The record is a 113-nucleotide RNA sequence from Candidatus Methylaffinis lahnbergensis, which matches "EcpR1" in Rfam.
RNA sequence: AUACCCUGCGGAGUGCUCGGGUCCGCCGCAUCUCCUGGGUCCGUAGGGUUGGCCGGCGAGCAAAUGGUUAUAGGAGUGGCCUCCUCGAAACGCCAUUUGCCGCCGGCCACCUU
Numbered sequence: 001a002u003a004c005c006c007u008g009c010g011g012a013g014u015g016c017u018c019g020g021g022u023c024c025g026c027c028g029c030a031u032c033u034c035c036u037g038g039g040u041c042c043g044u045a046g047g048g049u050u051g052g053c054c055g056g057c058g059a060g061c062a063a064a065u066g067g068u069u070a071u072a073g074g075a076g077u078g079g080c081c082u083c084c085u086c087g088a089a090a091c092g093c094c095a096u097u098u099g100c101c102g103c104c105g106g107c108c109a110c111c112u113u
Base pairs, nucleotide, nucleotide: 003049004048005047006046007045008044009043010042016039017038018037019036020035021034051108052107053106054105055104056103057102058101060100061099
A search with the family's covariance model found it, with a score of 100 bits. Rfam links the family to the GO terms negative regulation of cell cycle, mRNA binding and regulation of translation in response to stress. Lineage of the source: Bacteria > Alphaproteobacteria > Hyphomicrobiales > Beijerinckiaceae > Candidatus Methylaffinis. On this family, see Wilms et al., RNA Biol 2012: "Deep sequencing uncovers numerous small RNAs on all four replicons of the plant pathogen Agrobacterium tumefaciens".